The record is a 46-nucleotide sequence from Brassicogethes aeneus, which matches "Histone 3' UTR stem-loop" in Rfam. Taxonomically the source falls in Brassicogethes (Eukaryota, Panarthropoda, Pterygota, Neuropteroidea).
RNA sequence: AAAACGGCCCUUUUUAGGGCCACCAAUUUUCCCUAAAAAAAGAAUG
Numbered sequence: 001a002a003a004a005c006g007g008c009c010c011u012u013u014u015u016a017g018g019g020c021c022a023c024c025a026a027u028u029u030u031c032c033c034u035a036a037a038a039a040a041a042g043a044a045u046g
Stems, first nucleotide, its partner, number of pairs: 006021006